[Rfam]
RNA sequence: AAAAGGAGCAAUAUCGCUCUCUUGAUAGAACAAGAAAGAUGUAUUGCUCCUUUUUUU
Number, nucleotide and partner (000 for none) at each position: 001a000002a053003a052004a051005g050006g049007a048008g047009c046010a045011a044012u043013a042014u041015c000016g000017c000018u000019c000020u035021c034022u033023u032024g031025a000026u000027a000028g000029a000030a000031c024032a023033a022034g021035a020036a000037a000038g000039a000040u000041g014042u013043a012044u011045u010046g009047c008048u007049c006050c005051u004052u003053u002054u000055u000056u000057u000

Shown here is a 57-nucleotide sequence, a member of the family "Plastid-psbA-3 3UTR RNA". Plastid psbA-3 is a non-coding RNA (ncRNA) present in plastids. It was identified in inverted repeat sequences in the 3 prime untranslate region (3UTR) of photosystem II quinone-binding protein (psbA). Rfam's curators put it in the seed alignment. Rfam classes the family as a cis-regulatory element.